Rfam assigns this 80-nucleotide sequence from Vallitalea guaymasensis to the family "pemK RNA".
RNA sequence: AUAAUGAUACUUCUAUCCAGUCUUAACUCAUCGUAAAGAGGGUAGCCCGCUCUGCAGAGGGGGAGGUAUUGAACCUAUGU
Numbered sequence: 001a002u003a004a005u006g007a008u009a010c011u012u013c014u015a016u017c018c019a020g021u022c023u024u025a026a027c028u029c030a031u032c033g034u035a036a037a038g039a040g041g042g043u044a045g046c047c048c049g050c051u052c053u054g055c056a057g058a059g060g061g062g063g064a065g066g067u068a069u070u071g072a073a074c075c076u077a078u079g080u
Stems, first nucleotide, its partner, number of pairs: 012077001013045006046063003050059003064076003